[Rfam]
RNA sequence: UGGAGAAGGGGAGCACGUGCAAAAUCAGAUUAACUAGAAGUGAGUUGCACGUGCCCUGCUUCUCCAAC
Number, nucleotide and partner (000 for none) at each position: 001u066002g065003g064004a063005g062006a061007a060008g059009g000010g057011g056012a000013g054014c053015a052016c051017g050018u049019g048020c047021a046022a045023a000024a000025u000026c000027a000028g000029a000030u000031u000032a000033a000034c000035u000036a000037g000038a000039a000040g000041u000042g000043a000044g000045u022046u021047g020048c019049a018050c017051g016052u015053g014054c013055c000056c011057u010058g000059c008060u007061u006062c005063u004064c003065c002066a001067a000068c000
This 68-nucleotide RNA from Glycine max belongs to the Rfam family "MIR164 microRNA precursor family". The base pairs follow the family's consensus structure, which was predicted with RNAalifold. Taxonomically the source falls in Glycine subgen. Soja (Eukaryota, Fabales, Fabaceae, Papilionoideae). Gene Ontology terms of the family: miRNA-mediated post-transcriptional gene silencing and RISC complex. The match comes from Rfam's covariance-model search (64 bits).